[Rfam]
RNA sequence: CAGUCCCAUGCCUUGUGGCUUAAAAGUCACAUCAGGCAGGGUUCUCCAACUGCAUGAGAGAGCAACGUGGAGGGACUUUGACAGCCCAGGUCAAACCGUACCUGCAGCUGCCACUCGCCUUUCCUAUAAAC
Numbered sequence: 001c002a003g004u005c006c007c008a009u010g011c012c013u014u015g016u017g018g019c020u021u022a023a024a025a026g027u028c029a030c031a032u033c034a035g036g037c038a039g040g041g042u043u044c045u046c047c048a049a050c051u052g053c054a055u056g057a058g059a060g061a062g063c064a065a066c067g068u069g070g071a072g073g074g075a076c077u078u079u080g081a082c083a084g085c086c087c088a089g090g091u092c093a094a095a096c097c098g099u100a101c102c103u104g105c106a107g108c109u110g111c112c113a114c115u116c117g118c119c120u121u122u123c124c125u126a127u128a129a130a131c
Stems, first nucleotide, its partner, number of pairs: 006040002011036003015032003069124006084111002087104004

The record is a 131-nucleotide sequence from Tupaia belangeri, which matches "Small nucleolar RNA SNORA44" in Rfam. NCBI's taxonomy places the organism under Eukaryota, Chordata, Theria, Boreoeutheria, Tupaia belangeri. The literature on the family includes a 2001 paper in EMBO J by Huttenhofer et al., "RNomics: an experimental approach that identifies 201 candidates for novel, small, non-messenger RNAs in mouse". By type it is an H/ACA-box small nucleolar RNA. ACA44 is a member of the H/ACA class of snoRNA that guide the sites of modification of uridines to pseudouridines. The base pairs follow the family's consensus structure, which was predicted with PFOLD. Its Rfam clan is "SNORA44 clan".